A member of the RNA family "Glycine riboswitch aptamer" from Gordonia asplenii, 90 nucleotides long. The pairing is the family consensus, mapped onto this sequence. A search with the family's covariance model found it, with a score of 57 bits.
RNA sequence: UGACGCGCGGUGGGAGACCCCCUUGAAUGGGCGCCGUAGGAGCAACAUCCUCCCCGGGAAUCUCUCAGGCUCACGUACCACCGCGUCGAG
Numbered sequence: 001u002g003a004c005g006c007g008c009g010g011u012g013g014g015a016g017a018c019c020c021c022c023u024u025g026a027a028u029g030g031g032c033g034c035c036g037u038a039g040g041a042g043c044a045a046c047a048u049c050c051u052c053c054c055c056g057g058g059a060a061u062c063u064c065u066c067a068g069g070c071u072c073a074c075g076u077a078c079c080a081c082c083g084c085g086u087c088g089a090g
Base pairs, nucleotide, nucleotide: 006085007084008083009082010081011080012079013078020031021030022029033070034069035068036066040064041063042062046057
The source organism's lineage runs through Bacteria, Bacillati, Actinomycetota, Gordoniaceae and Gordonia.